[Rfam]
About this RNA:
Rfam assigns this 83-nucleotide RNA from Cimex lectularius to the family "mir-981 microRNA precursor family". The match comes from Rfam's covariance-model search (64 bits). Pairs were carried over by alignment from the consensus structure, which was predicted with RNAalifold.
RNA sequence: UUUGAUACAGUUCGGGUUUCGUUGCGACGGGACCGGAUUUCAGAUAAUAGGUUCGUUGUCGACGAAACCUGAAUCAGGUCAGA
Numbered sequence: 001u002u003u004g005a006u007a008c009a010g011u012u013c014g015g016g017u018u019u020c021g022u023u024g025c026g027a028c029g030g031g032a033c034c035g036g037a038u039u040u041c042a043g044a045u046a047a048u049a050g051g052u053u054c055g056u057u058g059u060c061g062a063c064g065a066a067a068c069c070u071g072a073a074u075c076a077g078g079u080c081a082g083a
Base pairs, nucleotide, nucleotide: 001083002082003081004080005079006078013071014070015069016068017067018066019065020064021063030054031053032052033051034050